[Rfam]
Shown here is a 127-nucleotide RNA sequence from Tupaia belangeri, a member of the family "Small nucleolar RNA SNORA27". Rfam describes the family as follows. ACA27 is a member of the H/ACA class of snoRNA that guide the sites of modification of uridines to pseudouridines. It is one of the family's seed sequences. Rfam classes the family as an H/ACA-box small nucleolar RNA.
RNA sequence: CACCCCCUUUUCUCUUUGCCAGUUGGACUUAUGUCUUUAUUGGCCAUUCAAAUGGGGCAAAGGAAAUGUCCUUUUAAAACUCAAGCAAACCAGGUGUUUGUCUUGUAUCCUGUCAAAGGAAACAAAU
Numbered sequence: 001c002a003c004c005c006c007c008u009u010u011u012c013u014c015u016u017u018g019c020c021a022g023u024u025g026g027a028c029u030u031a032u033g034u035c036u037u038u039a040u041u042g043g044c045c046a047u048u049c050a051a052a053u054g055g056g057g058c059a060a061a062g063g064a065a066a067u068g069u070c071c072u073u074u075u076a077a078a079a080c081u082c083a084a085g086c087a088a089a090c091c092a093g094g095u096g097u098u099u100g101u102c103u104u105g106u107a108u109c110c111u112g113u114c115a116a117a118g119g120a121a122a123c124a125a126a127u
Stems, first nucleotide, its partner, number of pairs: 032059005040051004069120006082105001083103001085101006